[Rfam]
RNA: uup RNA
RNA sequence: AGAAACUUAUCUCUGUACAAUUAAAUCCGAUGAAACAUUGUACAGAGU
Numbered sequence: 001a002g003a004a005a006c007u008u009a010u011c012u013c014u015g016u017a018c019a020a021u022u023a024a025a026u027c028c029g030a031u032g033a034a035a036c037a038u039u040g041u042a043c044a045g046a047g048u
Base pairs, nucleotide, nucleotide: 011047012046013045014044015043017041018040019039
Dot-bracket structure: ..........(((((.(((...................))).))))).